[Rfam]
RNA sequence: CCUGCCGAAGUUUCCCUCAGGAUAGCAGAAGCUUAUAGGCAGUUUUAUGUGGUAAAGCGAAUGAUUAGAGGUCUUGGGACGCAAUCCUUAACCUAUUCUCAAACUUUAAAUAUGUAAGACGUUCUUGCUGCUUGAAUUAUGAGCUUGAACCGUCGAAUGCUGAGCUUCUAGUGGGCCGUUCUUGGUAAGCAGGACUGGCGAUGCGGGAUGAACCGAACGCAAAGAUAAGGCGUCAAAGAACACGCUCAUCAGACACCACAAAAGGUGUUGGUUCAUCUAGACAGCAGGACGGUGGCCAUGGAAGUCGGCUAAGGAGUGUGUAACAACUCACCUGCCGAAUGAACCACGCCCUGGAAAUAAAUGGCGCUGAAGCGUGUCGCCCAUACUUUCCCGUCAAAGUUAAAAGCGAAGCUUUGACGAGUAGGCAGGCGUGGAGUUUUAUUGAGCGUUGGAACCCUUUGGCGGUGAGCCGGAGUGGACAGCCCUCUAGUGCAGAU
Numbered sequence: 001c002c003u004g005c006c007g008a009a010g011u012u013u014c015c016c017u018c019a020g021g022a023u024a025g026c027a028g029a030a031g032c033u034u035a036u037a038g039g040c041a042g043u044u045u046u047a048u049g050u051g052g053u054a055a056a057g058c059g060a061a062u063g064a065u066u067a068g069a070g071g072u073c074u075u076g077g078g079a080c081g082c083a084a085u086c087c088u089u090a091a092c093c094u095a096u097u098c099u100c101a102a103a104c105u106u107u108a109a110a111u112a113u114g115u116a117a118g119a120c121g122u123u124c125u126u127g128c129u130g131c132u133u134g135a136a137u138u139a140u141g142a143g144c145u146u147g148a149a150c151c152g153u154c155g156a157a158u159g160c161u162g163a164g165c166u167u168c169u170a171g172u173g174g175g176c177c178g179u180u181c182u183u184g185g186u187a188a189g190c191a192g193g194a195c196u197g198g199c200g201a202u203g204c205g206g207g208a209u210g211a212a213c214c215g216a217a218c219g220c221a222a223a224g225a226u227a228a229g230g231c232g233u234c235a236a237a238g239a240a241c242a243c244g245c246u247c248a249u250c251a252g253a254c255a256c257c258a259c260a261a262a263a264g265g266u267g268u269u270g271g272u273u274c275a276u277c278u279a280g281a282c283a284g285c286a287g288g289a290c291g292g293u294g295g296c297c298a299u300g301g302a303a304g305u306c307g308g309c310u311a312a313g314g315a316g317u318g319u320g321u322a323a324c325a326a327c328u329c330a331c332c333u334g335c336c337g338a339a340u341g342a343a344c345c346a347c348g349c350c351c352u353g354g355a356a357a358u359a360a361a362u363g364g365c366g367c368u369g370a371a372g373c374g375u376g377u378c379g380c381c382c383a384u385a386c387u388u389u390c391c392c393g394u395c396a397a398a399g400u401u402a403a404a405a406g407c408g409a410a411g412c413u414u415u416g417a418c419g420a421g422u423a424g425g426c427a428g429g430c431g432u433g434g435a436g437u438u439u440u441a442u443u444g445a446g447c448g449u450u451g452g453a454a455c456c457c458u459u460u461g462g463c464g465g466u467g468a469g470c471c472g473g474a475g476u477g478g479a480c481a482g483c484c485c486u487c488u489a490g491u492g493c494a495g496a497u
Base pairs, nucleotide, nucleotide: 001429002428003427004426005425006424011024013022014021015020027169028168029167030166031165032164033163043119044118045117046116047115048114049113050112055107056105057104062101063100064099067096069094070093071092074091075090076089077088078087121150122149123148124147127144128143129142175199176198177197178196180194181193182192183191184190204215205214206213219391221389222388223387229381230380231379238378240377243374244373245372263352264351265350267349268348269346270345271344272343273342274341275340276339284335285334286333287332288331290308292306297301309313314329318327319326392419393418394417395416396415397414398413399412400411430492432489433488434487435486436485439482440481456475461471462470463469
Eukaryotic large subunit ribosomal RNA: a 497-nucleotide part of an RNA. The family's consensus secondary structure is taken from published work. Clan: LSU clan. It is one of the family's seed sequences.